Shown here is an 85-nucleotide RNA, a member of the family "skipping-rope RNA".
The sequence is in the family's curated seed alignment.

RNA sequence: ACUAUUUGAGGUGGUAAAUUUCGCUGCAACUACACACCCUACGGAUUAAAAAGAGAUGCAGGAGCCGCGGCACCUGCCAAAUACU
Numbered sequence: 001a002c003u004a005u006u007u008g009a010g011g012u013g014g015u016a017a018a019u020u021u022c023g024c025u026g027c028a029a030c031u032a033c034a035c036a037c038c039c040u041a042c043g044g045a046u047u048a049a050a051a052a053g054a055g056a057u058g059c060a061g062g063a064g065c066c067g068c069g070g071c072a073c074c075u076g077c078c079a080a081a082u083a084c085u
Stems, first nucleotide, its partner, number of pairs: 001085001003083006011033005023071005035053001036046001038044002058077005